[Rfam]
RNA sequence: UCGUGCUAGGUGGGGCGUUAGCGGUGCCCUGUACUCGCAAUCCGCUAUAGCGAGGCUGAAACCCCCUGUUGAGGCAGUUCGUGUAUGGCCGCUGAAGGCAGUAUUUAGACGUUGACAGCUUGGUCCCGCGCGGCGAGGCCUCGUGAACCCCGUCAGGACCGGAAGGUAGCAGCGGUAAGCGAUUCACCUUGGGUGCCGCGGGAACGCCGGGCUGGAGUCGGUCCUGCCAUUUACGUCAUAUGAGUCUGUCGACACUGGGGUGCACGG
Numbered sequence: 001u002c003g004u005g006c007u008a009g010g011u012g013g014g015g016c017g018u019u020a021g022c023g024g025u026g027c028c029c030u031g032u033a034c035u036c037g038c039a040a041u042c043c044g045c046u047a048u049a050g051c052g053a054g055g056c057u058g059a060a061a062c063c064c065c066c067u068g069u070u071g072a073g074g075c076a077g078u079u080c081g082u083g084u085a086u087g088g089c090c091g092c093u094g095a096a097g098g099c100a101g102u103a104u105u106u107a108g109a110c111g112u113u114g115a116c117a118g119c120u121u122g123g124u125c126c127c128g129c130g131c132g133g134c135g136a137g138g139c140c141u142c143g144u145g146a147a148c149c150c151c152g153u154c155a156g157g158a159c160c161g162g163a164a165g166g167u168a169g170c171a172g173c174g175g176u177a178a179g180c181g182a183u184u185c186a187c188c189u190u191g192g193g194u195g196c197c198g199c200g201g202g203a204a205c206g207c208c209g210g211g212c213u214g215g216a217g218u219c220g221g222u223c224c225u226g227c228c229a230u231u232u233a234c235g236u237c238a239u240a241u242g243a244g245u246c247u248g249u250c251g252a253c254a255c256u257g258g259g260g261u262g263c264a265c266g267g
Base pairs, nucleotide, nucleotide: 001267002266003265004264005263006262009057010056011055012030013029014028015027016026017025018024019023034054035053036052037051038050063260064259065258066257068255069254073250074249075248076247077246080244082242083241084240085239086238087237088236089235094230097228098227099226100225101224106221108219109218110217116214117213118212119211120210121209122208123207124206125202126201127200128199129198130197131193134191135190136189137188138187141182142181143180144179150175151174152173153172158167159166160165
RNA: Bacterial large signal recognition particle RNA
Organism: SAR202 cluster bacterium AD-802-L14_MRT_200m